[Rfam]
RNA sequence: UGCAGAUGAUGUAUUUUCUCACGAUGGUCUUCCAAGCCAUUUGGUUUUGACGACAUUGCCUACAGGCUUCACUGAUGCAGCAUG
Number, nucleotide and partner (000 for none) at each position: 001u079002g078003c077004a076005g000006a000007u000008g000009a000010u000011g000012u000013a000014u000015u000016u000017u000018c000019u000020c000021a000022c000023g000024a000025u000026g000027g000028u000029c000030u000031u000032c000033c000034a000035a000036g000037c000038c000039a000040u000041u000042u000043g000044g000045u000046u000047u000048u000049g000050a000051c000052g000053a000054c000055a000056u000057u000058g000059c000060c000061u000062a000063c000064a000065g000066g000067c000068u000069u000070c000071a000072c000073u000074g000075a000076u004077g003078c002079a001080g000081c000082a000083u000084g000
This 84-nucleotide RNA from Chanos chanos belongs to the Rfam family "Small nucleolar RNA SNORD35". NCBI's taxonomy places the organism under Eukaryota, Teleostomi, Actinopteri, Otomorpha, Chanos. U35 is a C/D box snoRNA located in intron 6 of ribosomal protein L13A and intron 3 of ribosomal protein S11 in humans and at homologous positions in mouse and chicken ribosomal protein genes. It is annotated as a C/D-box small nucleolar RNA. Rfam links the family to the GO terms nucleolus and RNA processing. Clan: SNORD35 clan.